[Rfam]
RNA sequence: CCGAAGCACCCGCGGCCGGUGAGCCGGGGAACCACACUUCCCCCUGGGGUGAAUCCCCUGUGAGGCACGUUGCGCGAGCGGCGUGUGGAGCAGGGGUAGGACAGUCGUGCCGAACCCGUCAGCUCACCCGGUAGG
Numbered sequence: 001c002c003g004a005a006g007c008a009c010c011c012g013c014g015g016c017c018g019g020u021g022a023g024c025c026g027g028g029g030a031a032c033c034a035c036a037c038u039u040c041c042c043c044c045u046g047g048g049g050u051g052a053a054u055c056c057c058c059u060g061u062g063a064g065g066c067a068c069g070u071u072g073c074g075c076g077a078g079c080g081g082c083g084u085g086u087g088g089a090g091c092a093g094g095g096g097u098a099g100g101a102c103a104g105u106c107g108u109g110c111c112g113a114a115c116c117c118g119u120c121a122g123c124u125c126a127c128c129c130g131g132u133a134g135g
Stems, first nucleotide, its partner, number of pairs: 001135002007021004023132006033046002047117003055096007099111002
Dot-bracket structure: ((....((((.......)))).((((((....((..........))(((.....(((((((............................)))))))..((.........))...))).........)))))).))

c-di-AMP riboswitch aptamer (ydaO/yuaA leader): a 135-nucleotide sequence from Nocardioides seonyuensis. NCBI's taxonomy places the organism under Bacteria, Bacillati, Actinomycetota, Propionibacteriales, Nocardioides. It scores 52 bits against the family's covariance model.